[Rfam]
Rfam assigns this 120-nucleotide RNA sequence from Streptobacillus moniliformis to the family "DUF3800-I RNA". About the family: Actinobacteria, Firmicutes, Fusobacteria, Proteobacteria (1 example), Tenericutes (2 examples).
RNA sequence: UAUUAUUGCAGAUAGAGAAAUCUAUACUGUCUAAUUUCUAUGAAACUGAAUGCAAAUUUAAGCGACUUUAUAAAGUCAUCAGACAUAGAGCCACUUACAAUGUAGGUGGUAUUUUUUGUA
Numbered sequence: 001u002a003u004u005a006u007u008g009c010a011g012a013u014a015g016a017g018a019a020a021u022c023u024a025u026a027c028u029g030u031c032u033a034a035u036u037u038c039u040a041u042g043a044a045a046c047u048g049a050a051u052g053c054a055a056a057u058u059u060a061a062g063c064g065a066c067u068u069u070a071u072a073a074a075g076u077c078a079u080c081a082g083a084c085a086u087a088g089a090g091c092c093a094c095u096u097a098c099a100a101u102g103u104a105g106g107u108g109g110u111a112u113u114u115u116u117u118g119u120a
Base pairs, nucleotide, nucleotide: 007034008032010030011027012025013024014023015022016021037089038088039087040086041085042084046082047081048080049058050057051056062079064077065076066075067074090110091109092108093107094106095105096104097103098102

By type it is a small RNA.